Shown here is a 63-nucleotide RNA sequence from Bacillus sp. HNG, a member of the family "Bacillaceae-1 RNA". It scores 48 bits against the family's covariance model. NCBI's taxonomy places the organism under Bacteria, Bacillati, Bacillota, Bacillaceae, Bacillus. Pairs were carried over by alignment from the consensus structure, which is taken from published work.
[Rfam]
RNA sequence: GAAAGCGGAACAUCGACUAACUACUGCCACGUCCUGUGGCAAACGUCGAUGUCAGCACUUCCU
Dot-bracket structure: ..........(((((((........(((((.....)))))....)))))))............
Numbered sequence: 001g002a003a004a005g006c007g008g009a010a011c012a013u014c015g016a017c018u019a020a021c022u023a024c025u026g027c028c029a030c031g032u033c034c035u036g037u038g039g040c041a042a043a044c045g046u047c048g049a050u051g052u053c054a055g056c057a058c059u060u061c062c063u
Stems, first nucleotide, its partner, number of pairs: 011051007026040005